Bacillus sRNA ncr1575: a 209-nucleotide RNA sequence from Lysinibacillus fusiformis.
[Rfam]
RNA sequence: AAAGACAAUUAUGAGAGGACUGAUGAAUGGACAAUGAAGAACUAAACUAUAUUUUUAUUUGAAUUGAAUGAUUUCAAACACAAAAUAUAGGGUUAGUUUAUCCAUUUUUAACAAUCAGUUUGCAUUGUAUUUGUCAUGACACAAAUGGCAAAUCGUAUUUAUUUAGUGAAAGACUAAUCCUUCCAAUGCACAAGUGGAGGGAUUUUUUC
Numbered sequence: 001a002a003a004g005a006c007a008a009u010u011a012u013g014a015g016a017g018g019a020c021u022g023a024u025g026a027a028u029g030g031a032c033a034a035u036g037a038a039g040a041a042c043u044a045a046a047c048u049a050u051a052u053u054u055u056u057a058u059u060u061g062a063a064u065u066g067a068a069u070g071a072u073u074u075c076a077a078a079c080a081c082a083a084a085a086u087a088u089a090g091g092g093u094u095a096g097u098u099u100a101u102c103c104a105u106u107u108u109u110a111a112c113a114a115u116c117a118g119u120u121u122g123c124a125u126u127g128u129a130u131u132u133g134u135c136a137u138g139a140c141a142c143a144a145a146u147g148g149c150a151a152a153u154c155g156u157a158u159u160u161a162u163u164u165a166g167u168g169a170a171a172g173a174c175u176a177a178u179c180c181u182u183c184c185a186a187u188g189c190a191c192a193a194g195u196g197g198a199g200g201g202a203u204u205u206u207u208u209c
Stems, first nucleotide, its partner, number of pairs: 016109003024104002027101001030098003043095003047091002049088006058078006065071001116155001118153001123147004176204010
The literature on the family includes a 2010 paper in Nucleic Acids Res by Irnov et al., "Identification of regulatory RNAs in Bacillus subtilis".